[Rfam]
RNA sequence: UUCUUAUCCAGAGAGGUGGAGGGACUGGCCCUUUGAAGCUUCGGCAACAGACAAUCUAUUUAUUGUUAUUGUGCCAAAUCCAGCAAGCAUACGUGCUUGAAAGAUAAGAA
Numbered sequence: 001u002u003c004u005u006a007u008c009c010a011g012a013g014a015g016g017u018g019g020a021g022g023g024a025c026u027g028g029c030c031c032u033u034u035g036a037a038g039c040u041u042c043g044g045c046a047a048c049a050g051a052c053a054a055u056c057u058a059u060u061u062a063u064u065g066u067u068a069u070u071g072u073g074c075c076a077a078a079u080c081c082a083g084c085a086a087g088c089a090u091a092c093g094u095g096c097u098u099g100a101a102a103g104a105u106a107a108g109a110a
Stems, first nucleotide, its partner, number of pairs: 001110008013042005021031003025083004043075004048071002050067004079102001084099006